This 84-nucleotide RNA from Danionella cerebrum belongs to the Rfam family "Small nucleolar RNA SNORD11B". The base pairs follow the family's consensus structure, which was predicted with WAR. The organism belongs to Danionella, within Eukaryota. A search with the family's covariance model found it, with a score of 54 bits. Its Rfam clan is "SNORD11 clan". A reference for the family is Yang et al. (2006), "snoSeeker: an advanced computational package for screening of guide and orphan snoRNA genes in the human genome", Nucleic Acids Res.
RNA sequence: AACAAGCUGUGAUGAUGACGACCGUUGUGUCUUUUGGCCGAAAAUUCAUGAGGCCUUUUUGUCACUACCUCAUCUGAGCUUGUG
Numbered sequence: 001a002a003c004a005a006g007c008u009g010u011g012a013u014g015a016u017g018a019c020g021a022c023c024g025u026u027g028u029g030u031c032u033u034u035u036g037g038c039c040g041a042a043a044a045u046u047c048a049u050g051a052g053g054c055c056u057u058u059u060u061g062u063c064a065c066u067a068c069c070u071c072a073u074c075u076g077a078g079c080u081u082g083u084g
Stems, first nucleotide, its partner, number of pairs: 002083006